[Rfam]
Nucleotides: 172
Base pairs, nucleotide, nucleotide: 001016002015003014004013005012006011030170031169035165036164040159041158042157043156044155046151047150048149049148050147063145064144065143066142067141073138074137075136077134078133079132080131081130082129083128084112085111086110087109090105091104092103
Number, partner (000 for none) and nucleotide at each position: 001016u002015c003014g004013c005012g006011g007000g008000c009000g010000a011006c012005u013004g014003c015002g016001a017000g018000u019000c020000u021000g022000a023000a024000g025000g026000a027000a028000g029000c030170c031169g032000g033000a034000g035165g036164c037000a038000a039000a040159g041158c042157g043156c044155u045000g046151g047150c048149c049148u050147g051000a052000c053000g054000a055000a056000c057000a058000g059000g060000a061000a062000g063145c064144g065143g066142a067141u068000a069000a070000g071000a072000g073138g074137c075136g076000a077134c078133g079132c080131a081130u082129c083128g084112g085111g086110g087109u088000a089000a090105g091104g092103c093000a094000g095000c096000c097000a098000u099000a100000a101000a102000g103092g104091u105090c106000g107000a108000a109087g110086c111085c112084c113000g114000a115000a116000a117000c118000u119000u120000g121000c122000a123000c124000g125000g126000g127000a128083c129082g130081a131080u132079g133078c134077g135000g136075c137074g138073u139000a140000u141067a142066u143065c144064c145063g146000a147050c148049a149048g150047g151046c152000a153000u154000a155044a156043g157042c158041g159040u160000g161000a162000a163000g164036g165035u166000g167000g168000g169031u170030g171000c172000g
Shown here is a 172-nucleotide RNA sequence from Burkholderia ambifaria, a member of the family "Group II catalytic intron D1-D4-3". The sequence is in the family's curated seed alignment. The pairing is the family consensus, mapped onto this sequence.